[Rfam]
RNA: FMN riboswitch aptamer (RFN element)
RNA sequence: AGAGACCUUCGGGGCAGGGUGCAAUUCCCGACCGGCGGUGUGCUUUGCCAGCAGAUGCAGCAAAGUAAGCCCGCGAGUCCUUCAUCAGCUUCACGUUGACGAGGCGACAGAUUCGGUGCGAUUCCGAAGCCGACGGUAUAGUCCGGAUGGGAGAAGGUUUAU
Numbered sequence: 001a002g003a004g005a006c007c008u009u010c011g012g013g014g015c016a017g018g019g020u021g022c023a024a025u026u027c028c029c030g031a032c033c034g035g036c037g038g039u040g041u042g043c044u045u046u047g048c049c050a051g052c053a054g055a056u057g058c059a060g061c062a063a064a065g066u067a068a069g070c071c072c073g074c075g076a077g078u079c080c081u082u083c084a085u086c087a088g089c090u091u092c093a094c095g096u097u098g099a100c101g102a103g104g105c106g107a108c109a110g111a112u113u114c115g116g117u118g119c120g121a122u123u124c125c126g127a128a129g130c131c132g133a134c135g136g137u138a139u140a141g142u143c144c145g146g147a148u149g150g151g152a153g154a155a156g157g158u159u160u161a162u
Stems, first nucleotide, its partner, number of pairs: 003160008017029003031142002033132002035074004069130002077108003112128005134145003